Background:
c-di-AMP riboswitch aptamer (ydaO/yuaA leader): a 196-nucleotide sequence from Paenibacillus beijingensis.
[Rfam]
RNA sequence: CUGUCUUUAUCGCUGAAUCCUUUUUGCAACGCAGGAGCGGGGGAACCGAGCGGAUUUUCCGUGUGAGCGGAAUCCAUGGGGUGAAUCCUUAGGGCUGCAUUGACCUUGACGAAAGUAGGUUUAUGCAGCUCCAAGGAAGGGCGACUCUGACGCCCGAAUCCGGCAGCUAACCUCGUAAGCGUAUUUUAGAGAGGCA
Numbered sequence: 001c002u003g004u005c006u007u008u009a010u011c012g013c014u015g016a017a018u019c020c021u022u023u024u025u026g027c028a029a030c031g032c033a034g035g036a037g038c039g040g041g042g043g044a045a046c047c048g049a050g051c052g053g054a055u056u057u058u059c060c061g062u063g064u065g066a067g068c069g070g071a072a073u074c075c076a077u078g079g080g081g082u083g084a085a086u087c088c089u090u091a092g093g094g095c096u097g098c099a100u101u102g103a104c105c106u107u108g109a110c111g112a113a114a115g116u117a118g119g120u121u122u123a124u125g126c127a128g129c130u131c132c133a134a135g136g137a138a139g140g141g142c143g144a145c146u147c148u149g150a151c152g153c154c155c156g157a158a159u160c161c162g163g164c165a166g167c168u169a170a171c172c173u174c175g176u177a178a179g180c181g182u183a184u185u186u187u188a189g190a191g192a193g194g195c196a
Stems, first nucleotide, its partner, number of pairs: 011181004018036003037176006047078002079161003087136004139155004
Taxonomically the source falls in Paenibacillus (Bacteria, Bacillati, Bacillota, Paenibacillaceae). It scores 87 bits against the family's covariance model.